This 134-nucleotide sequence from Ornithorhynchus anatinus belongs to the Rfam family "Small nucleolar RNA SNORA70". It is annotated as an H/ACA-box small nucleolar RNA. Rfam describes the family as follows. snoRNA U70 seems to be exclusive to mammals and is a member of the H/ACA class of snoRNA which contain H (ANANNA) and ACA box motifs. H/ACA box snoRNAs are involved in the conversion of uridines to pseudouridines (5-ribosyluracil) a constituent of structural RNAs (transfer, ribosomal, small nuclear, and small nucleolar). Rfam 15.1 lists 5,173 matches to the family in 383 species.
RNA sequence: CCGCAGACAAUUAAGCCGACUGGCCCCUGCCUCUGUCGAGGGCCAGUGUGCAAUGGCUGCGCACAGCAAACUCCUCGGUUGUGUACGUGCCCCGUUCCCUGUAUGGGGCGCCCUAAGGGACCUUGGAAACAGCA
Numbered sequence: 001c002c003g004c005a006g007a008c009a010a011u012u013a014a015g016c017c018g019a020c021u022g023g024c025c026c027c028u029g030c031c032u033c034u035g036u037c038g039a040g041g042g043c044c045a046g047u048g049u050g051c052a053a054u055g056g057c058u059g060c061g062c063a064c065a066g067c068a069a070a071c072u073c074c075u076c077g078g079u080u081g082u083g084u085a086c087g088u089g090c091c092c093c094g095u096u097c098c099c100u101g102u103a104u105g106g107g108g109c110g111c112c113c114u115a116a117g118g119g120a121c122c123u124u125g126g127a128a129a130c131a132g133c134a
Base pairs, nucleotide, nucleotide: 003051004050005049019047020046021045022044025042026041027040028039077122078121079120088110089109090108091107092106093105